[Rfam]
Rfam assigns this 82-nucleotide RNA from filamentous cyanobacterium CCP2 to the family "Glutamine riboswitch aptamer (glnA leader)". On this family, see Ames and Breaker, RNA Biol 2011: "Bacterial aptamers that selectively bind glutamine". NCBI's taxonomy places the organism under Bacteria, Bacillati, Cyanobacteriota.
RNA sequence: AACGUUCAUCUCUGAGUAAAUAUCUGAGUAAAUAACCCAGCUCAGAGACGGAAGUAAAGGAAACUCCUUGAAGGAACGCGCC
Numbered sequence: 001a002a003c004g005u006u007c008a009u010c011u012c013u014g015a016g017u018a019a020a021u022a023u024c025u026g027a028g029u030a031a032a033u034a035a036c037c038c039a040g041c042u043c044a045g046a047g048a049c050g051g052a053a054g055u056a057a058a059g060g061a062a063a064c065u066c067c068u069u070g071a072a073g074g075a076a077c078g079c080g081c082c
Stems, first nucleotide, its partner, number of pairs: 003078005009048009051079001057069003